[Rfam]
RNA sequence: AAAGCAUAUGCAGGAGAGAGUGCGCCCGUCGGCGUGCCACCGAAGGCGCAGAUACCCUUAAAUCGCUCAGGUAAAAGGACUGCAUAUUGUCA
Numbered sequence: 001a002a003a004g005c006a007u008a009u010g011c012a013g014g015a016g017a018g019a020g021u022g023c024g025c026c027c028g029u030c031g032g033c034g035u036g037c038c039a040c041c042g043a044a045g046g047c048g049c050a051g052a053u054a055c056c057c058u059u060a061a062a063u064c065g066c067u068c069a070g071g072u073a074a075a076a077g078g079a080c081u082g083c084a085u086a087u088u089g090u091c092a
Base pairs, nucleotide, nucleotide: 006087007086008085009084010083011082012081013080020037021036022035023034024033025032039072040071041070042068043067046066047065048064052059
The record is a 92-nucleotide RNA from Neisseria arctica, which matches "Glycine riboswitch aptamer" in Rfam. The organism belongs to Neisseria, within Bacteria. The match comes from Rfam's covariance-model search (61 bits). Rfam's curators write: This family represents the bacterial glycine riboswitch. The family is grouped with related families in Rfam's "Glycine riboswitch clan".